[Rfam]
RNA: mir-9/mir-79 microRNA precursor family
RNA sequence: UUGCUUGUUUCUUUGGUGGUCUAGCUGUAUGAGGUUUUUAAGUUCAUAAAGCUAGAUCAGCAAGGCAACAAGUGA
Numbered sequence: 001u002u003g004c005u006u007g008u009u010u011c012u013u014u015g016g017u018g019g020u021c022u023a024g025c026u027g028u029a030u031g032a033g034g035u036u037u038u039u040a041a042g043u044u045c046a047u048a049a050a051g052c053u054a055g056a057u058c059a060g061c062a063a064g065g066c067a068a069c070a071a072g073u074g075a
Stems, first nucleotide, its partner, number of pairs: 001075005007069003011065005017059010028048006